[Rfam]
RNA sequence: GCCAUACUCAAAAUGGAGGCCCUCUCCCAAGCCUUUUAAAGUGGAAAGUGCUUCCAUUUUGUGUGUUGC
Numbered sequence: 001g002c003c004a005u006a007c008u009c010a011a012a013a014u015g016g017a018g019g020c021c022c023u024c025u026c027c028c029a030a031g032c033c034u035u036u037u038a039a040a041g042u043g044g045a046a047a048g049u050g051c052u053u054c055c056a057u058u059u060u061g062u063g064u065g066u067u068g069c
Stems, first nucleotide, its partner, number of pairs: 004066004009061012022048002025045003